Shown here is a 139-nucleotide sequence from Populus tomentosa, a member of the family "MIR474 microRNA precursor family".
Taxonomically the source falls in Populus (Eukaryota, Streptophytina, fabids, Malpighiales).
Rfam links the family to the GO terms miRNA-mediated post-transcriptional gene silencing and RISC complex.
[Rfam]
RNA sequence: UCAAAAGUUGUUGGGUCACGCUUAAUAACCGAACCUAACACUAUUGGGUAUGGCUGGGCAAUAGUAUUUAGUUUAGUUAUCAAGCAUGGCCUAAUAGUAUUGGGUCCGACUGUUAAGCCAGACCCAGUAGCUUUUGAAA
Numbered sequence: 001u002c003a004a005a006a007g008u009u010g011u012u013g014g015g016u017c018a019c020g021c022u023u024a025a026u027a028a029c030c031g032a033a034c035c036u037a038a039c040a041c042u043a044u045u046g047g048g049u050a051u052g053g054c055u056g057g058g059c060a061a062u063a064g065u066a067u068u069u070a071g072u073u074u075a076g077u078u079a080u081c082a083a084g085c086a087u088g089g090c091c092u093a094a095u096a097g098u099a100u101u102g103g104g105u106c107c108g109a110c111u112g113u114u115a116a117g118c119c120a121g122a123c124c125c126a127g128u129a130g131c132u133u134u135u136g137a138a139a
Stems, first nucleotide, its partner, number of pairs: 001137002004134014020118008031051001033049006055108004